[Rfam]
Xanthomonas sRNA sX9: a 74-nucleotide RNA from Xanthomonas oryzae.
By type it is a small RNA.
The match comes from Rfam's covariance-model search (50 bits).

RNA sequence: AGAUGCCAUGCGUACGCGCCGGUUCCUGGGCGCCGUCGACACCCGCCUGCCGACUGCUCGCUGCGGUUUUAGCC
Numbered sequence: 001a002g003a004u005g006c007c008a009u010g011c012g013u014a015c016g017c018g019c020c021g022g023u024u025c026c027u028g029g030g031c032g033c034c035g036u037c038g039a040c041a042c043c044c045g046c047c048u049g050c051c052g053a054c055u056g057c058u059c060g061c062u063g064c065g066g067u068u069u070u071a072g073c074c
Stems, first nucleotide, its partner, number of pairs: 004014003020035004025030001047072003052069002